RNA sequence: UUAUAUAGUAGGCAAACUUAUCGAAAGAUAAGGACGCAAAGCUAUGGGUCUAAGGACAGAUGGGUCUAUGAUUGCCAAGUUGCCGAU
Numbered sequence: 001u002u003a004u005a006u007a008g009u010a011g012g013c014a015a016a017c018u019u020a021u022c023g024a025a026a027g028a029u030a031a032g033g034a035c036g037c038a039a040a041g042c043u044a045u046g047g048g049u050c051u052a053a054g055g056a057c058a059g060a061u062g063g064g065u066c067u068a069u070g071a072u073u074g075c076c077a078a079g080u081u082g083c084c085g086a087u
Base pairs, nucleotide, nucleotide: 012037013036017032018031019030020029021028022027040081041080042079043078045077046076047075048072049071050070055066056065057064
Dot-bracket structure: ...........((...((((((....))))))...))..((((.((((((....(((......)))...)))..)))))))......